The family of this 142-nucleotide sequence from Mesocricetus auratus is "Small nucleolar RNA SNORA79".
[Rfam]
RNA sequence: UGAUGACUGCUCCUCCUAUCAUCUUUAGGUGUGGCACUUGGAUUUUAGGUCAGCAGGCAUUAAAAAUGUUUUUUUUUCACUCAGAAUAUUAAGAUAUUGGGAUUAUCUAUGUGUUCUCUGAAAUUUUUGGGAUCAAACAAUU
Numbered sequence: 001u002g003a004u005g006a007c008u009g010c011u012c013c014u015c016c017u018a019u020c021a022u023c024u025u026u027a028g029g030u031g032u033g034g035c036a037c038u039u040g041g042a043u044u045u046u047a048g049g050u051c052a053g054c055a056g057g058c059a060u061u062a063a064a065a066a067u068g069u070u071u072u073u074u075u076u077u078c079a080c081u082c083a084g085a086a087u088a089u090u091a092a093g094a095u096a097u098u099g100g101g102a103u104u105a106u107c108u109a110u111g112u113g114u115u116c117u118c119u120g121a122a123a124u125u126u127u128u129g130g131g132a133u134c135a136a137a138c139a140a141u142u
Stems, first nucleotide, its partner, number of pairs: 001055002004052005014042003018038001022034002068134001070132004081121004085115004092108005
Description:
ACA65 (SNORA79) is a member of the H/ACA class of snoRNAs that guide the sites of modification of uridines to pseudouridines. Rfam classes the family as an H/ACA-box small nucleolar RNA. It scores 102 bits against the family's covariance model. Its family is annotated with RNA processing and nucleolus in the Gene Ontology. A reference for the family is Schattner et al. (2006), "A computational screen for mammalian pseudouridylation guide H/ACA RNAs", RNA.